[Rfam]
Nucleotides: 080
Base pairs, nucleotide, nucleotide: 004077006075007074010071011070013067014066015065016064017063018062019061020060021059022058023057025055026054027053029052030051031050032049
Number, partner (000 for none) and nucleotide at each position: 001000u002000g003000c004077u005000a006075u007074g008000u009000a010071a011070u012000a013067a014066a015065g016064u017063g018062c019061u020060u021059a022058c023057a024000g025055u026054g027053c028000a029052g030051g031050u032049a033000a034000u035000g036000g037000u038000u039000a040000u041000g042000c043000c044000c045000u046000a047000c048000c049032u050031a051030c052029c053027g054026c055025a056000a057023u058022g059021u060020g061019a062018g063017c064016a065015c066014u067013u068000c069000u070011g071010u072000c073000a074007c075006a076000a077004g078000g079000c080000a